Shown here is a 58-nucleotide sequence from Pan troglodytes, a member of the family "mir-1206 microRNA precursor family". Its family is annotated with miRNA-mediated post-transcriptional gene silencing and RISC complex in the Gene Ontology. The family's consensus secondary structure was predicted with RNAalifold.
RNA sequence: AGUGUUCAUGUAGAUGUUUAAGCUCUUGCAGUAGGUUUUUGCAAGCUAGUGAACGCUG
Numbered sequence: 001a002g003u004g005u006u007c008a009u010g011u012a013g014a015u016g017u018u019u020a021a022g023c024u025c026u027u028g029c030a031g032u033a034g035g036u037u038u039u040u041g042c043a044a045g046c047u048a049g050u051g052a053a054c055g056c057u058g
Stems, first nucleotide, its partner, number of pairs: 001057009011048003025045007